A member of the RNA family "Group II catalytic intron D1-D4-2" from Pseudolycoriella hygida, 115 nucleotides long. The match comes from Rfam's covariance-model search (79 bits). Pairs were carried over by alignment from the consensus structure. Group II introns are found in rRNA, tRNA and mRNA of organelles in fungi, plants and protists, and also in mRNA in bacteria. Taxonomically the source falls in Pseudolycoriella (Eukaryota, Protostomia, Endopterygota, Diptera).

[Rfam]
RNA sequence: GAGAGUAGGUUUCUCGCAGUCGAUCUACAGGGGUAGGCUGCAGGCUACUGUAAGCGGUGUUUAUUAAGAGCAUUUGUCGUGAGCGUUACAGAAAAGGUGCAAAUAUGUAUCAGAU
Numbered sequence: 001g002a003g004a005g006u007a008g009g010u011u012u013c014u015c016g017c018a019g020u021c022g023a024u025c026u027a028c029a030g031g032g033g034u035a036g037g038c039u040g041c042a043g044g045c046u047a048c049u050g051u052a053a054g055c056g057g058u059g060u061u062u063a064u065u066a067a068g069a070g071c072a073u074u075u076g077u078c079g080u081g082a083g084c085g086u087u088a089c090a091g092a093a094a095a096g097g098u099g100c101a102a103a104u105a106u107g108u109a110u111c112a113g114a115u
Base pairs, nucleotide, nucleotide: 001015002014003013004012005011016041017040018039019038020037021036023034024033025032026031046114048091049090050089051088052087053086054080055079057077058076059075062072064070096111097110098109099108100107101106
Annotation:
The literature on the family includes a 2001 paper in Trends Genet by Bonen and Vogel, "The ins and outs of group II introns".